[Rfam]
RNA sequence: AGAAUGCACAUAAGUUAUCCUUGAGGUCAUGGGAUAAACAAAACACCCUGUAAAACUAAGUUAGCACAUCCUAAAAUAGUUCUAGCAAGCUUCCUAACCUAUGGCUCUAAUACUAGUUGAUGAGAAAAUCCC
Numbered sequence: 001a002g003a004a005u006g007c008a009c010a011u012a013a014g015u016u017a018u019c020c021u022u023g024a025g026g027u028c029a030u031g032g033g034a035u036a037a038a039c040a041a042a043a044c045a046c047c048c049u050g051u052a053a054a055a056c057u058a059a060g061u062u063a064g065c066a067c068a069u070c071c072u073a074a075a076a077u078a079g080u081u082c083u084a085g086c087a088a089g090c091u092u093c094c095u096a097a098c099c100u101a102u103g104g105c106u107c108u109a110a111u112a113c114u115a116g117u118u119g120a121u122g123a124g125a126a127a128a129u130c131c132c
Base pairs, nucleotide, nucleotide: 009122010121011120013118014117015116016115022109023108025106026105027104028103029102030101031100032099033098049087050086054081055080057078058077061074062073063072064071
RNA: MIR845_2 microRNA precursor family